[Rfam]
RNA: mir-9195 microRNA precursor family
Organism: Myotis myotis
RNA sequence: AGAGGCCCUCCGCAGCUGGGGUGGAAUGCUUGCCUCGUCGCUGUGGUUACGAAGCAAGCAUUCCACCAGGCUGCUCACGCUGCCCGC
Numbered sequence: 001a002g003a004g005g006c007c008c009u010c011c012g013c014a015g016c017u018g019g020g021g022u023g024g025a026a027u028g029c030u031u032g033c034c035u036c037g038u039c040g041c042u043g044u045g046g047u048u049a050c051g052a053a054g055c056a057a058g059c060a061u062u063c064c065a066c067c068a069g070g071c072u073g074c075u076c077a078c079g080c081u082g083c084c085c086g087c
Base pairs, nucleotide, nucleotide: 004084005083006082012074013073014072015071016070017069020067021066022065023064024063025062026061027060028059029058030057031056032055033054037050038049040047041046